RNA sequence: CCCGCCACUGUUCUUGCCUGCUUCUCGCCUGUGGCUUGGACAUUCCAGUGGUGAGCUAAGAGCGAAGCCCCAUUCUAGGAAACAGGCUUGCCCUCUCCGUGGGUAACUCUGUGCCGAUGAUUGGGAACAAGC
Numbered sequence: 001c002c003c004g005c006c007a008c009u010g011u012u013c014u015u016g017c018c019u020g021c022u023u024c025u026c027g028c029c030u031g032u033g034g035c036u037u038g039g040a041c042a043u044u045c046c047a048g049u050g051g052u053g054a055g056c057u058a059a060g061a062g063c064g065a066a067g068c069c070c071c072a073u074u075c076u077a078g079g080a081a082a083c084a085g086g087c088u089u090g091c092c093c094u095c096u097c098c099g100u101g102g103g104u105a106a107c108u109c110u111g112u113g114c115c116g117a118u119g120a121u122u123g124g125g126a127a128c129a130a131g132c
Base pairs, nucleotide, nucleotide: 005051006050007049008048009047010046017039018038020036069125070124071123072122074120075119078115079114083111084110085109086108088106091103092102093101